[Rfam]
RNA sequence: GGAUACCACUUUUUGCUAUCUCCGGCUAAUAACACAAUGAUAUAUGUAAUAAUUUUUUCACGUGUCAUUGUGUUAUUAGCUGGGAAUAGCAAAACAGUGCUAUCC
Numbered sequence: 001g002g003a004u005a006c007c008a009c010u011u012u013u014u015g016c017u018a019u020c021u022c023c024g025g026c027u028a029a030u031a032a033c034a035c036a037a038u039g040a041u042a043u044a045u046g047u048a049a050u051a052a053u054u055u056u057u058u059c060a061c062g063u064g065u066c067a068u069u070g071u072g073u074u075a076u077u078a079g080c081u082g083g084g085a086a087u088a089g090c091a092a093a094a095c096a097g098u099g100c101u102a103u104c105c
Stems, first nucleotide, its partner, number of pairs: 002104004011094009021084023045060002048057002
RNA: MIR6274 microRNA precursor family
Organism: Prunus yedoensis